[Rfam]
RNA sequence: CGAGAUAACCCUCGUUAAGGAACUCGGCAAUCUAGCCCCGUAACUUCGGGAGAAGGGGUGCCCUCGCGAGAGGGUUACAAUAAAGUGGCUCGAGUGACUGUUUAACAAAGACACAGGUCUCUGCAAAAGCGAAAGCUGAAGUAUAGGGGCUGACACCUGCCCAGUGCUGGAAGGUUAAGGGGAGGAGUUAGGGUAACCGAAGCUCUGAACCGAAGCCCCAGUGAACGGCGGCCGUAACUAUAACGGUCCUAAGGUAGCGAAAUCCCUUGUCGGGUAAGUUCCGACCCGCACGAAAGGUAUAACAACUUGAGCGCUGUCUUAACGAGGGACUCG
Numbered sequence: 001c002g003a004g005a006u007a008a009c010c011c012u013c014g015u016u017a018a019g020g021a022a023c024u025c026g027g028c029a030a031u032c033u034a035g036c037c038c039c040g041u042a043a044c045u046u047c048g049g050g051a052g053a054a055g056g057g058g059u060g061c062c063c064u065c066g067c068g069a070g071a072g073g074g075u076u077a078c079a080a081u082a083a084a085g086u087g088g089c090u091c092g093a094g095u096g097a098c099u100g101u102u103u104a105a106c107a108a109a110g111a112c113a114c115a116g117g118u119c120u121c122u123g124c125a126a127a128a129g130c131g132a133a134a135g136c137u138g139a140a141g142u143a144u145a146g147g148g149g150c151u152g153a154c155a156c157c158u159g160c161c162c163a164g165u166g167c168u169g170g171a172a173g174g175u176u177a178a179g180g181g182g183a184g185g186a187g188u189u190a191g192g193g194u195a196a197c198c199g200a201a202g203c204u205c206u207g208a209a210c211c212g213a214a215g216c217c218c219c220a221g222u223g224a225a226c227g228g229c230g231g232c233c234g235u236a237a238c239u240a241u242a243a244c245g246g247u248c249c250u251a252a253g254g255u256a257g258c259g260a261a262a263u264c265c266c267u268u269g270u271c272g273g274g275u276a277a278g279u280u281c282c283g284a285c286c287c288g289c290a291c292g293a294a295a296g297g298u299a300u301a302a303c304a305a306c307u308u309g310a311g312c313g314c315u316g317u318c319u320u321a322a323c324g325a326g327g328g329a330c331u332c333g
Stems, first nucleotide, its partner, number of pairs: 001333004009328008018319003035059005044049001060075006076080001088312007095304002099113003116151008124141001128137003155298003159229003164226002166222005173217003179211002184206005191198002230248006249253001259286001269285006
This 333-nucleotide part of an RNA from Dehalococcoides mccartyi belongs to the Rfam family "Bacterial large subunit ribosomal RNA". Taxonomically the source falls in Dehalococcoides mccartyi (Bacteria, Dehalococcoidales, Dehalococcoidaceae, Dehalococcoides). The family's consensus secondary structure is taken from published work.